[Rfam]
RNA sequence: UGGCGUUUCGAGGUCACAUGUGGUGCAGCAUGAUUCAGGAACAUGCCGCGCAGCAUGUGACCUUCCUACACCGU
Numbered sequence: 001u002g003g004c005g006u007u008u009c010g011a012g013g014u015c016a017c018a019u020g021u022g023g024u025g026c027a028g029c030a031u032g033a034u035u036c037a038g039g040a041a042c043a044u045g046c047c048g049c050g051c052a053g054c055a056u057g058u059g060a061c062c063u064u065c066c067u068a069c070a071c072c073g074u
Stems, first nucleotide, its partner, number of pairs: 003071001005069002010064012023051004